RNA sequence: UGGUCCGUCCCGUGGAACACCCACGACUCCGCGAGCCCCCUGCGGUUACCCUGACUCCGUGCGCCUUCUCACCGGAAGCCGCAAAGCCGACAGCCGUCGCAUCCCAGGGAGCUCAUUCCAUG
Dot-bracket structure: ...........................................................((((.((((......)))).))))..((.(((....)))))......................